This 78-nucleotide RNA from Enterobacter sp. 638 belongs to the Rfam family "ABC transporter regulator". A reference for the family is Chao et al. (2012), "An atlas of Hfq-bound transcripts reveals 3' UTRs as a genomic reservoir of regulatory small RNAs", EMBO J.
RNA sequence: UAUACCCUUCGUGAUGUGGUUAUUGUAGUCAUAGUUCCUUGAUUACACAGGGCAAUAAUUUAUUGCCCUUUUAUUUUA
Numbered sequence: 001u002a003u004a005c006c007c008u009u010c011g012u013g014a015u016g017u018g019g020u021u022a023u024u025g026u027a028g029u030c031a032u033a034g035u036u037c038c039u040u041g042a043u044u045a046c047a048c049a050g051g052g053c054a055a056u057a058a059u060u061u062a063u064u065g066c067c068c069u070u071u072u073a074u075u076u077u078a
Stems, first nucleotide, its partner, number of pairs: 025046007049069009
Rfam classes the family as a cis-regulatory element. Pairs were carried over by alignment from the consensus structure, which is taken from published work.